[Rfam]
RNA: Bacterial large subunit ribosomal RNA, nucleotides 784 to 1226
Nucleotides: 443
Stems, first nucleotide, its partner, number of pairs: 001382006011024005026130001027128006036121001040115006051104001052102002057098003061094004068087002070084005134159010164175003179352004184348003190342003199339001201338006218312002222309010239296005245269003250264003270274001275290001279288002353372008383438001385435005393428003402422005408417003
Number, partner (000 for none) and nucleotide at each position: 001382c002381u003380c004379c005378g006377c007000g008000a009000a010000a011024g012023a013022u014021a015020u016000u017000u018000a019000g020015g021014u022013a023012u024011c025000g026130c027128c028127u029126c030125a031124g032123a033000c034000g035000a036121a037000u038000a039000c040115c041114u042113c043112a044111g045110g046000g047000g048000g049000u050000a051104g052102a053101g054000c055000a056000c057098u058097g059096g060000a061094u062093g063092g064091g065000c066000u067000a068087g069086g070084g071083g072082g073081u074080c075000u076000c077000a078000c079000c080074g081073a082072c083071u084070u085000a086069c087068c088000a089000a090000a091064c092063c093062u094061a095000a096059c097058c098057a099000a100000a101053c102052u103000c104051c105000g106000a107000a108000u109000a110045c111044c112043u113042g114041a115040g116000a117000g118000u119000a120000c121036u122000a123032u124031c125030u126029g127028g128027g129000a130026g131000a132000c133000a134159g135158a136157c137156g138155g139154u140153g141152g142151g143150u144000g145000c146000u147000a148000a149000c150143g151142u152141c153140c154139a155138u156137c157136g158135u159134c160000a161000a162000g163000a164175g165174g166173g167000a168000a169000a170000c171000a172000a173166c174165c175164c176000u177000g178000a179352c180351c181350u182349a183000c184348a185347g186346c187000u188000a189000a190342g191341g192340u193000c194000c195000c196000c197000a198000a199339g200000u201338c202337a203336u204335g205334g206333u207000u208000a209000a210000g211000u212000g213000g214000g215000a216000a217000a218312g219311c220000a221000u222309g223308u224307g225306g226305g227304a228303a229302u230301g231300c232000u233000u234000a235000g236000a237000c238000a239296a240295c241294c242293a243292g244000g245269a246268g247267g248000u249000u250264g251263g252262c253000u254000u255000a256000g257000a258000a259000g260000c261000a262252g263251c264250c265000a266000u267247c268246c269245u270274u271000u272000a273000a274270a275290g276000a277000u278000a279288g280287c281000g282000u283000a284000a285000c286000a287280g288279c289000u290275c291000a292243c293242u294241g295240g296239u297000c298000a299000a300231g301230c302229g303228u304227u305226c306225c307224u308223g309222c310000g311219g312218c313000g314000a315000a316000g317000a318000u319000g320000u321000a322000a323000c324000g325000g326000g327000g328000c329000u330000c331000a332000a333206a334205c335204c336203a337202u338201g339199c340192a341191c342190c343000g344000a345000a346186g347185c348184u349182u350181a351180g352179g353372g354371u355370u356369u357368g358367c359366a360365a361000c362000u363000u364000g365360u366359u367358g368357c369356a370355a371354g372353c373000g374000g375000u376000a377006g378005c379004g380003g381002a382001g383438c384000g385435u386434u387433c388432c389431g390000u391000a392000a393428g394427c395426c396000u397000g398000c399000g400000a401000a402422g403421g404420g405419a406418u407000a408417c409416u410415c411000g412000u413000g414000a415410g416409a417408g418406a419405u420404c421403c422402u423000g424000g425000a426395g427394g428393u429000a430000u431389c432388g433387g434386a435385a436000g437000u438383g439000c440000g441000a442000a443000u